[Rfam]
RNA sequence: CCUAGGAUUAUGUACUGUAUGUUAACGAGUCACGUCGGGCUCCGCGAUGGGUUUGGUCGCCCAUGGGAUGGAGAUAUGGAAAGGGUCUCGCGCACUAUAAGUCUAACUACGGUUGAGCUUGUGAUGUGGGCCUAUGCGUGGAUAACACAUACAUGUUGCACACUAGG
Numbered sequence: 001c002c003u004a005g006g007a008u009u010a011u012g013u014a015c016u017g018u019a020u021g022u023u024a025a026c027g028a029g030u031c032a033c034g035u036c037g038g039g040c041u042c043c044g045c046g047a048u049g050g051g052u053u054u055g056g057u058c059g060c061c062c063a064u065g066g067g068a069u070g071g072a073g074a075u076a077u078g079g080a081a082a083g084g085g086u087c088u089c090g091c092g093c094a095c096u097a098u099a100a101g102u103c104u105a106a107c108u109a110c111g112g113u114u115g116a117g118c119u120u121g122u123g124a125u126g127u128g129g130g131c132c133u134a135u136g137c138g139u140g141g142a143u144a145a146c147a148c149a150u151a152c153a154u155g156u157u158g159c160a161c162a163c164u165a166g167g
Base pairs, nucleotide, nucleotide: 001167002166003165004164005163011160012159013158016153017152018151019150020149021148022147026140027139031136035079036078037077040073041072042071043070044069047064048063049062050061051060052059083133084132085131086130087129089128090127091126092125096123097122098121100119101118103117104116105114106113107112
A member of the RNA family "Tombusvirus 3' cap-independent translation element" from Punica granatum tombusvirus, 167 nucleotides long. The source organism's lineage runs through Viruses, Orthornavirae, Kitrinoviricota, Tolucaviricetes and Tombusviridae.